[Rfam]
RNA sequence: GGGGAACGAGAGUAGCCCACCUCCACGUGGUGUUCCCCGGGCAACGGUGCAGUUCACUGGAACUGAAACGGCUAAGAGGCUACU
Numbered sequence: 001g002g003g004g005a006a007c008g009a010g011a012g013u014a015g016c017c018c019a020c021c022u023c024c025a026c027g028u029g030g031u032g033u034u035c036c037c038c039g040g041g042c043a044a045c046g047g048u049g050c051a052g053u054u055c056a057c058u059g060g061a062a063c064u065g066a067a068a069c070g071g072c073u074a075a076g077a078g079g080c081u082a083c084u
Stems, first nucleotide, its partner, number of pairs: 001038007019031003045070002048067001